[Rfam]
RNA sequence: UGAGACGACCAGACAAUCGCGCUAGCAAUAGUGAGGAAAGUCCGGGCUCCAUAGGGCAGGGUGCCAGGUAAUACCUGGGAGGCGUGAGCCUACGGCCAGUGCAACAGAAAGUAUACCGCCUGCAAUGCUGGUCAUUGCCGGUAAGGGUGAAAUGGUGCGGUAAGAGCGCACCGCGCUGCUGGUAACAGCAGUGGCAGGGUAAACCCCACUCGGAGCAAGACCAAAUAGAGGAACGAUUGCCUUGUGCAUGACAUGCGGCCCGCAUGGUUCCUGGGUAGGUUGCAAGAGGCAGAUGGUGACAUCUGUCCCAGAUGAAUGAUUGUCCACGACAGAACCCGGCUUAUCGGUCGUCUCAUUUU
Numbered sequence: 001u002g003a004g005a006c007g008a009c010c011a012g013a014c015a016a017u018c019g020c021g022c023u024a025g026c027a028a029u030a031g032u033g034a035g036g037a038a039a040g041u042c043c044g045g046g047c048u049c050c051a052u053a054g055g056g057c058a059g060g061g062u063g064c065c066a067g068g069u070a071a072u073a074c075c076u077g078g079g080a081g082g083c084g085u086g087a088g089c090c091u092a093c094g095g096c097c098a099g100u101g102c103a104a105c106a107g108a109a110a111g112u113a114u115a116c117c118g119c120c121u122g123c124a125a126u127g128c129u130g131g132u133c134a135u136u137g138c139c140g141g142u143a144a145g146g147g148u149g150a151a152a153u154g155g156u157g158c159g160g161u162a163a164g165a166g167c168g169c170a171c172c173g174c175g176c177u178g179c180u181g182g183u184a185a186c187a188g189c190a191g192u193g194g195c196a197g198g199g200u201a202a203a204c205c206c207c208a209c210u211c212g213g214a215g216c217a218a219g220a221c222c223a224a225a226u227a228g229a230g231g232a233a234c235g236a237u238u239g240c241c242u243u244g245u246g247c248a249u250g251a252c253a254u255g256c257g258g259c260c261c262g263c264a265u266g267g268u269u270c271c272u273g274g275g276u277a278g279g280u281u282g283c284a285a286g287a288g289g290c291a292g293a294u295g296g297u298g299a300c301a302u303c304u305g306u307c308c309c310a311g312a313u314g315a316a317u318g319a320u321u322g323u324c325c326a327c328g329a330c331a332g333a334a335c336c337c338g339g340c341u342u343a344u345c346g347g348u349c350g351u352c353u354c355a356u357u358u359u
Stems, first nucleotide, its partner, number of pairs: 001355010011344001012324007020033005038342003042339005047215004054261004059211005064078005079093001080091004094206002099204002101200002116146002118142003122138005154172006173195001174193008219281004229272006252266005288307008
Overview:
The record is a 359-nucleotide RNA sequence from Methylophaga lonarensis, which matches "Bacterial RNase P class A" in Rfam. The family's consensus secondary structure is taken from published work. Gene Ontology terms of the family: ribonuclease P activity, tRNA processing and dimeric ribonuclease P complex. It is annotated as a ribozyme.